[Rfam]
RNA sequence: AAGUUAAUAGGCGAUGGAGUUCGCCUAAAUGCUGAUAAGCUAAUGACUCCUACAAAUGU
Numbered sequence: 001a002a003g004u005u006a007a008u009a010g011g012c013g014a015u016g017g018a019g020u021u022c023g024c025c026u027a028a029a030u031g032c033u034g035a036u037a038a039g040c041u042a043a044u045g046a047c048u049c050c051u052a053c054a055a056a057u058g059u
Stems, first nucleotide, its partner, number of pairs: 010025004016050006031040003
Dot-bracket structure: .........[[[[..((((((]]]].....(((....)))....)))))).........

Background: Shown here is a 59-nucleotide sequence from Thermobrachium celere, a member of the family "Fluoride riboswitch aptamer (crcB RNA motif)". Rfam links the family to the GO terms positive regulation of gene expression and response to fluoride. It scores 54 bits against the family's covariance model.